[Rfam]
RNA sequence: UCGUCACGUCGCGACUGGCGUUGGAUGGGUCACCAUCGGGGAGCGACAACCGACACGGUGCGCGGCCGUACGCCUGGGCUGCACCG
Numbered sequence: 001u002c003g004u005c006a007c008g009u010c011g012c013g014a015c016u017g018g019c020g021u022u023g024g025a026u027g028g029g030u031c032a033c034c035a036u037c038g039g040g041g042a043g044c045g046a047c048a049a050c051c052g053a054c055a056c057g058g059u060g061c062g063c064g065g066c067c068g069u070a071c072g073c074c075u076g077g078g079c080u081g082c083a084c085c086g
Base pairs, nucleotide, nucleotide: 008047009046010045011044012043015040016039017074018073019072020071021070025036026035027034028033063081064080065079066078067077